[Rfam]
Burkholderiales-2 RNA: a 75-nucleotide sequence. The base pairs follow the family's consensus structure, which is taken from published work. By type it is a cis-regulatory element.

Nucleotides: 075
Stems, first nucleotide, its partner, number of pairs: 001029003008024005036075005046063006
Number, partner (000 for none) and nucleotide at each position: 001029g002028c003027a004000u005000a006000g007000c008024u009023u010022c011021g012020g013000c014000c015000c016000a017000u018000g019000c020012c021011c022010g023009a024008a025000g026000g027003u028002g029001c030000u031000c032000u033000u034000u035000u036075g037074c038073c039072g040071g041000a042000c043000a044000a045000a046063u047062g048061c049060c050059c051058c052000g053000c054000a055000g056000g057000u058051g059050g060049g061048g062047c063046a064000a065000g066000c067000a068000a069000c070000a071040u072039c073038g074037g075036c